[Rfam]
RNA: tRNA
RNA sequence: GGUUCCAUGGUGUAAUGGUUAGCACUCUGGACUCUGAAUCCAGCGAUCCGAGUUCAAAUCUCGGUGGAACCU
Numbered sequence: 001g002g003u004u005c006c007a008u009g010g011u012g013u014a015a016u017g018g019u020u021a022g023c024a025c026u027c028u029g030g031a032c033u034c035u036g037a038a039u040c041c042a043g044c045g046a047u048c049c050g051a052g053u054u055c056a057a058a059u060c061u062c063g064g065u066g067g068a069a070c071c072u
Stems, first nucleotide, its partner, number of pairs: 001071007010025004027043005048064005
Dot-bracket structure: (((((((..((((........)))).(((((.......)))))....(((((.......)))))))))))).